Source information:
Rfam assigns this 168-nucleotide RNA from Atlantibacter hermannii to the family "SraG RNA". It is annotated as a small RNA. Rfam's curators write: This RNA was discovered in E. coli during a large scale screen. The base pairs follow the family's consensus structure, which was predicted with PFOLD.
Nucleotides: 168
Base pairs, nucleotide, nucleotide: 001088002087003086004085005084006083008080009079010078015071016070017069018068020064021063022062023061024060025059026058094123095122148163149162150161151160152159153158
Number, partner (000 for none) and nucleotide at each position: 001088u002087u003086u004085c005084u006083u007000u008080g009079c010078a011000u012000c013000c014000u015071c016070g017069c018068g019000a020064c021063u022062a023061a024060u025059g026058a027000c028000a029000a030000c031000c032000c033000u034000a035000a036000c037000u038000c039000c040000g041000u042000c043000g044000u045000g046000g047000a048000g049000u050000g051000a052000a053000g054000c055000c056000u057000c058026u059025c060024a061023u062022u063021a064020g065000c066000c067000g068018c069017g070016c071015g072000a073000a074000c075000c076000u077000c078010u079009g080008c081000a082000g083006a084005a085004g086003a087002a088001a089000a090000u091000c092000c093000c094123u095122u096000c097000a098000g099000g100000c101000a102000a103000c104000a105000a106000u107000a108000c109000a110000g111000u112000a113000g114000u115000u116000u117000a118000c119000u120000g121000u122095g123094g124000a125000u126000u127000u128000c129000u130000g131000c132000c133000a134000u135000c136000u137000g138000g139000u140000u141000g142000a143000a144000a145000a146000a147000a148163g149162g150161g151160g152159c153158c154000a155000u156000a157000a158153g159152g160151c161150c162149c163148c164000c165000u166000u167000u168000u